RNA sequence: CGCGGUCAAGGGCAAACCUGUCUAAAGGCAGGGACGCAAAACAACCGAUCUAAAGGAGCAAUCCCAUGAUAGCGGUGUCGCCAAC
Numbered sequence: 001c002g003c004g005g006u007c008a009a010g011g012g013c014a015a016a017c018c019u020g021u022c023u024a025a026a027g028g029c030a031g032g033g034a035c036g037c038a039a040a041a042c043a044a045c046c047g048a049u050c051u052a053a054a055g056g057a058g059c060a061a062u063c064c065c066a067u068g069a070u071a072g073c074g075g076u077g078u079c080g081c082c083a084a085c
Stems, first nucleotide, its partner, number of pairs: 012037002017032006041078003045075003048070003055064003